[Rfam]
RNA sequence: CGGGAUGUAGCUUAGUCCGGUUAAAGUGCUGGUCUGGGGGACCAGAGAUCGGUGGUUCGAAUCCACUCAUCCCGA
Numbered sequence: 001c002g003g004g005a006u007g008u009a010g011c012u013u014a015g016u017c018c019g020g021u022u023a024a025a026g027u028g029c030u031g032g033u034c035u036g037g038g039g040g041a042c043c044a045g046a047g048a049u050c051g052g053u054g055g056u057u058c059g060a061a062u063c064c065a066c067u068c069a070u071c072c073c074g075a
Base pairs, nucleotide, nucleotide: 001074002073003072004071005070006069007068010027011026012025013024029045030044031043032042033041051067052066053065054064055063